[Rfam]
RNA: Ribosomal S15 leader
RNA sequence: UUGGGUGGCUGAAUUAGAGAUCGGCGCCUGUUUUUUGUUCGUUAUAAUCCCCAAAAUUGGAGUUCUACAAUGUCUCUAAAUGUUGAAACAAAAGCUAAGAUUGUUGCUGAGUAUGGUCGUUGCGAA
Dot-bracket structure: .......(((((........)))))...............................((((((...........))))))...............................................
Numbered sequence: 001u002u003g004g005g006u007g008g009c010u011g012a013a014u015u016a017g018a019g020a021u022c023g024g025c026g027c028c029u030g031u032u033u034u035u036u037g038u039u040c041g042u043u044a045u046a047a048u049c050c051c052c053a054a055a056a057u058u059g060g061a062g063u064u065c066u067a068c069a070a071u072g073u074c075u076c077u078a079a080a081u082g083u084u085g086a087a088a089c090a091a092a093a094g095c096u097a098a099g100a101u102u103g104u105u106g107c108u109g110a111g112u113a114u115g116g117u118c119g120u121u122g123c124g125a126a
Stems, first nucleotide, its partner, number of pairs: 008025005057079006